[Rfam]
RNA sequence: AUUGGACCAACUUCUAUUGGUGAGAGAGAAAAGCUUUCGAAAGCUUUUCUCUCUCACCAACAGAAGUUGGUGCAAU
Numbered sequence: 001a002u003u004g005g006a007c008c009a010a011c012u013u014c015u016a017u018u019g020g021u022g023a024g025a026g027a028g029a030a031a032a033g034c035u036u037u038c039g040a041a042a043g044c045u046u047u048u049c050u051c052u053c054u055c056a057c058c059a060a061c062a063g064a065a066g067u068u069g070g071u072g073c074a075a076u
Base pairs, nucleotide, nucleotide: 001076002075003074004073005071007070008069009068010067011066012065013064014063015062017060018059019058020057021056022055026053027052028051029050
Dot-bracket structure: (((((.(((((((((.((((((...((((....................)))).)))))).)))))))))).))))